Rfam assigns this 337-nucleotide sequence to the family "Bacterial RNase P class A".
The match comes from Rfam's covariance-model search (197 bits).
Rfam classes the family as a ribozyme.
The base pairs follow the family's consensus structure, which is taken from published work.
[Rfam]
RNA sequence: GAAGCACGCUGGACCGCCGCUGGUGCAAUCUGGGAAACCAGGCACUGGAGGAACGUCCGGACUGCACAGGACAGCGCAGGAGCUAACGGCUCUCCACCGCGAGGUGAGGAUCAGAGCAACAGAGACGAGUCGGUGAAGGGGCAACCCCGAUCCGGGUGAAACGGGCAAUCUCUGCGCGCAGCAACACCAAGUAGGCCAGUAUCGAGGUGGUUCCGCUGAGCUGGCGGGUAGGUGGCAUCGAGCUGUUUGGCGACAAACGGCCCAGAGUAAUGGCGGUCAUGCCGGGGUUCGCAAGAACGCCGGUACACAGAAUCCGGCGUACAGGCGCGCUUCACAC
Numbered sequence: 001g002a003a004g005c006a007c008g009c010u011g012g013a014c015c016g017c018c019g020c021u022g023g024u025g026c027a028a029u030c031u032g033g034g035a036a037a038c039c040a041g042g043c044a045c046u047g048g049a050g051g052a053a054c055g056u057c058c059g060g061a062c063u064g065c066a067c068a069g070g071a072c073a074g075c076g077c078a079g080g081a082g083c084u085a086a087c088g089g090c091u092c093u094c095c096a097c098c099g100c101g102a103g104g105u106g107a108g109g110a111u112c113a114g115a116g117c118a119a120c121a122g123a124g125a126c127g128a129g130u131c132g133g134u135g136a137a138g139g140g141g142c143a144a145c146c147c148c149g150a151u152c153c154g155g156g157u158g159a160a161a162c163g164g165g166c167a168a169u170c171u172c173u174g175c176g177c178g179c180a181g182c183a184a185c186a187c188c189a190a191g192u193a194g195g196c197c198a199g200u201a202u203c204g205a206g207g208u209g210g211u212u213c214c215g216c217u218g219a220g221c222u223g224g225c226g227g228g229u230a231g232g233u234g235g236c237a238u239c240g241a242g243c244u245g246u247u248u249g250g251c252g253a254c255a256a257a258c259g260g261c262c263c264a265g266a267g268u269a270a271u272g273g274c275g276g277u278c279a280u281g282c283c284g285g286g287g288u289u290c291g292c293a294a295g296a297a298c299g300c301c302g303g304u305a306c307a308c309a310g311a312a313u314c315c316g317g318c319g320u321a322c323a324g325g326c327g328c329g330c331u332u333c334a335c336a337c
Base pairs, nucleotide, nucleotide: 001333002332003331004330005329007327008326009325010324011322012278013277014276015275016274017273018272020048021047022046023045024044025043026042053320054319055318057317058316059315060314061313062181063180064179065178070212071211074177075176076175077174078173079093080092081091082090083089094108095106096105097104098103109172110171114170115169116166117165131155133151134150138148139147140146141145185234186233187232188231195225196224197223198222199221200220206217207216208215209214242261243260244259245258246257247256248255249254